[Rfam]
RNA sequence: CAAAUAUAUAUUCAAAUGCCGCAGACAGCAGGUGCAUACGCUUAAACAUGCCUGCCGAGGAAGAUAGUUUUGAUACUAGAUAUUGAAAUUAUAGCCCUUGUAUGUCUGUGUGCAUGCAAGGGCUUUUAUAAUUAAAAC
Number, nucleotide and partner (000 for none) at each position: 001c000002a000003a000004a000005u000006a000007u000008a000009u000010a000011u000012u000013c000014a000015a000016a000017u000018g000019c000020c000021g000022c000023a000024g000025a000026c000027a000028g055029c054030a053031g052032g051033u050034g041035c040036a000037u000038a000039c000040g035041c034042u000043u000044a000045a000046a000047c000048a000049u000050g033051c032052c031053u030054g029055c028056c000057g000058a000059g000060g000061a000062a000063g000064a000065u000066a000067g000068u000069u000070u000071u000072g000073a000074u000075a000076c000077u000078a000079g000080a000081u000082a000083u000084u000085g000086a000087a000088a000089u000090u000091a000092u000093a000094g123095c122096c121097c120098u119099u118100g117101u116102a115103u114104g113105u112106c000107u000108g000109u000110g000111u000112g105113c104114a103115u102116g101117c100118a099119a098120g097121g096122g095123c094124u000125u000126u000127u000128a000129u000130a000131a000132u000133u000134a000135a000136a000137a000138c000
Rfam assigns this 138-nucleotide sequence from Peptoclostridium acidaminophilum to the family "Ribosomal protein L10 leader". The match comes from Rfam's covariance-model search (77 bits). The organism belongs to Peptoclostridium acidaminophilum, within Bacteria. This family is a putative r-protein leader autoregulatory structure found in B. subtilis and other low-GC Gram-positive bacteria. It is located in the 5' untranslated regions of mRNAs encoding ribosomal proteins L10 and L12 (rplJ-rplL). A Rho-independent transcription terminator structure that is probably involved in regulation is included at the 3' end.